[Rfam]
RNA sequence: GACAACAGAAAAGCUUAUGGGCGGUCGGCUAGUCUCCCGAAGAAGGGAGGUGAUGCCAAUGGAGGUCAAAGACGCGCUUACCCUAAUGUUCAUGUUCGGCAUGUUCAUUCUAGCGCUGCUAACCUACAUGAAAAAGAAAUAGACCGCCCUCUGCAAAGGUUUGCGGUCUAUCUCUCGACUAAUUACCUAGUUUAGCUAACCGCCUUUAAAGCGGCUGUUGUCAAGAGUAAGGAUGCUACAACAUCCUUG
Numbered sequence: 001g002a003c004a005a006c007a008g009a010a011a012a013g014c015u016u017a018u019g020g021g022c023g024g025u026c027g028g029c030u031a032g033u034c035u036c037c038c039g040a041a042g043a044a045g046g047g048a049g050g051u052g053a054u055g056c057c058a059a060u061g062g063a064g065g066u067c068a069a070a071g072a073c074g075c076g077c078u079u080a081c082c083c084u085a086a087u088g089u090u091c092a093u094g095u096u097c098g099g100c101a102u103g104u105u106c107a108u109u110c111u112a113g114c115g116c117u118g119c120u121a122a123c124c125u126a127c128a129u130g131a132a133a134a135a136g137a138a139a140u141a142g143a144c145c146g147c148c149c150u151c152u153g154c155a156a157a158g159g160u161u162u163g164c165g166g167u168c169u170a171u172c173u174c175u176c177g178a179c180u181a182a183u184u185a186c187c188u189a190g191u192u193u194a195g196c197u198a199a200c201c202g203c204c205u206u207u208a209a210a211g212c213g214g215c216u217g218u219u220g221u222c223a224a225g226a227g228u229a230a231g232g233a234u235g236c237u238a239c240a241a242c243a244u245c246c247u248u249g
Stems, first nucleotide, its partner, number of pairs: 001222005007216002012197004019149003023144001025142001030053001032051001034049005061127001063125004074089003098120004159183003200214004228249008
Dot-bracket structure: (((((.((...((((...(((.(.(....(.(.(((((......))))).).).......(.((((.......(((..........)))........((((...............)))).)))).)..............).)..))).........(((...................)))..........))))..((((.......)))))).))))).....((((((((......))))))))
A member of the RNA family "BsrG" from Paenibacillus rhizosphaerae, 249 nucleotides long.
bsrE, bsrG and bsrH pair through intermolecular interactions with antisense sRNAs. They form type I toxin/antitoxin system that includes an mRNA encoding for a short, toxic peptide (bsrE, bsrG and bsrH) and an antitoxin that is comprised of an antisense RNA. bsrG encodes a 39-amino-acid toxin, and the 180 nucleotide antisense sRNA called SR4 acts as the antitoxin (they overlap by 123 nucleotides).
Lineage of the source: Bacteria > Bacillota > Caryophanales > Paenibacillaceae > Paenibacillus.
A reference for the family is Saito et al. (2008), "Novel small RNA-encoding genes in the intergenic regions of Bacillus subtilis", Gene.